[Rfam]
Rfam assigns this 87-nucleotide RNA from Escherichia coli to the family "ArsR-gov region gene B". Rfam describes the family as follows. arsR-gov region gene B is transcribed opposite of dinQ (translates into a toxic single transmembrane peptide) with 30 complimentary nucleotides. The family's RNA type in Rfam is antisense RNA. The family's consensus secondary structure was predicted with RNAfold. The match comes from Rfam's covariance-model search (46 bits). The literature on the family includes a 2013 paper in PLoS Genet by Weel-Sneve et al., "Single transmembrane peptide DinQ modulates membrane-dependent activities".

RNA sequence: UUAGGUGUAGAGCAAUUUUCUCCGGUCAUAGCCACCAACAGAACCGGAAAGCCAAAAAGCCCAACCUCACCAGUUGGACUUUUUUAC
Dot-bracket structure: ....................((((((....(.......)...)))))).....((((((.(((((.......))))).))))))...